Rfam assigns this 92-nucleotide sequence from Asticcacaulis sp. AC402 to the family "Glycine riboswitch aptamer".
RNA sequence: UUCGCUCAUGCGGGAGAGAUCGGGAUUCGUCCCCCGACGCCGAAGGCGCAACCGCCCCGGAAACGCUCAGGCAAACGGACCGCAACCGAGCC
Numbered sequence: 001u002u003c004g005c006u007c008a009u010g011c012g013g014g015a016g017a018g019a020u021c022g023g024g025a026u027u028c029g030u031c032c033c034c035c036g037a038c039g040c041c042g043a044a045g046g047c048g049c050a051a052c053c054g055c056c057c058c059g060g061a062a063a064c065g066c067u068c069a070g071g072c073a074a075a076c077g078g079a080c081c082g083c084a085a086c087c088g089a090g091c092c
Stems, first nucleotide, its partner, number of pairs: 009084005020037004039072003042068002046066003052060002
The source organism's lineage runs through Bacteria, Pseudomonadati, Alphaproteobacteria, Caulobacteraceae and Asticcacaulis.